[Rfam]
RNA sequence: GUCUUCUCAUUGAGCUCCGUUCUGUCAACUGGUGGCAGAUAUGGAUUCGCACGAGAAGGAGAGAGAAUUCACAGAACUAGCGCUUAACUAACCUUCUGUUUCUACAGAGGUUUAUUUGUCUGUUGUGUGAUACAUUC
Numbered sequence: 001g002u003c004u005u006c007u008c009a010u011u012g013a014g015c016u017c018c019g020u021u022c023u024g025u026c027a028a029c030u031g032g033u034g035g036c037a038g039a040u041a042u043g044g045a046u047u048c049g050c051a052c053g054a055g056a057a058g059g060a061g062a063g064a065g066a067a068u069u070c071a072c073a074g075a076a077c078u079a080g081c082g083c084u085u086a087a088c089u090a091a092c093c094u095u096c097u098g099u100u101u102c103u104a105c106a107g108a109g110g111u112u113u114a115u116u117u118g119u120c121u122g123u124u125g126u127g128u129g130a131u132a133c134a135u136u137c
Stems, first nucleotide, its partner, number of pairs: 003058006014050002016045003022038005069130005093110006
Shown here is a 137-nucleotide sequence from Cricetulus griseus, a member of the family "Small nucleolar RNA SNORA75". The family has 6 seed sequences and 414 matches in Rfam 15.1. From the family's description: U23 belongs to the H/ACA class of snoRNAs. snoRNAs bind a number of proteins (including dyskerin, Gar1p and Nop10p in the case of the H/ACA class) to form snoRNP complexes. This class are thought to guide the sites of modification of uridines to pseudouridines by forming direct base pairing interactions with substrate RNAs. Targets include ribosomal and spliceosomal RNAs as well as the Trypanosoma spliced leader RNA (SL RNA) as possibly other, still unknown cellular RNAs. U23 can direct the pseudouridylation of U97 in human 18S rRNA (Bachellerie JP, Ganot, P unpublished data). U23 is encoded within intron 12 of the nucleolin gene in human, mouse, rat chicken, and Xenopus laevis. On this family, see Ganot et al., Genes Dev 1997: "The family of box ACA small nucleolar RNAs is defined by an evolutionarily conserved secondary structure and ubiquitous sequence elements essential for RNA accumulation". Pairs were carried over by alignment from the consensus structure, which was predicted with PFOLD. The match comes from Rfam's covariance-model search (116 bits).